[Rfam]
RNA sequence: CCUAGCACUCCCGUGCUAGGCUAAUGUAUGUCGUGCCUUCAGCACU
Numbered sequence: 001c002c003u004a005g006c007a008c009u010c011c012c013g014u015g016c017u018a019g020g021c022u023a024a025u026g027u028a029u030g031u032c033g034u035g036c037c038u039u040c041a042g043c044a045c046u
Base pairs, nucleotide, nucleotide: 001020002019003018004017005016006015007014008013033045034044035043036042
Rfam assigns this 46-nucleotide RNA from Lentisphaera araneosa to the family "Acido-Lenti-1 RNA". Pairs were carried over by alignment from the consensus structure, which is taken from published work. Rfam's curators put it in the seed alignment. The family has 87 seed sequences and 2,607 matches in Rfam 15.1. The family's RNA type in Rfam is small RNA. Taxonomically the source falls in Lentisphaera araneosa (Bacteria, Lentisphaeria, Lentisphaerales, Lentisphaera).